[Rfam]
RNA sequence: GCAACCUGAUGCUGGCCCGCGAGAGCCGUACCGUGUUCCUGAGCCUGCUGGGCAUCUCGUGGCUGUGGUUCCUGGGCGCGACCUUCCUGACCUCGUUCUUCGCGUUCGCCAAGACCGUGCUC
Numbered sequence: 001g002c003a004a005c006c007u008g009a010u011g012c013u014g015g016c017c018c019g020c021g022a023g024a025g026c027c028g029u030a031c032c033g034u035g036u037u038c039c040u041g042a043g044c045c046u047g048c049u050g051g052g053c054a055u056c057u058c059g060u061g062g063c064u065g066u067g068g069u070u071c072c073u074g075g076g077c078g079c080g081a082c083c084u085u086c087c088u089g090a091c092c093u094c095g096u097u098c099u100u101c102g103c104g105u106u107c108g109c110c111a112a113g114a115c116c117g118u119g120c121u122c
Base pairs, nucleotide, nucleotide: 011048012047014045015044018041019040021038022037023036025034026033051121052120053119054118055117060112062110064104065103067099068098071095074092075091077089078088080087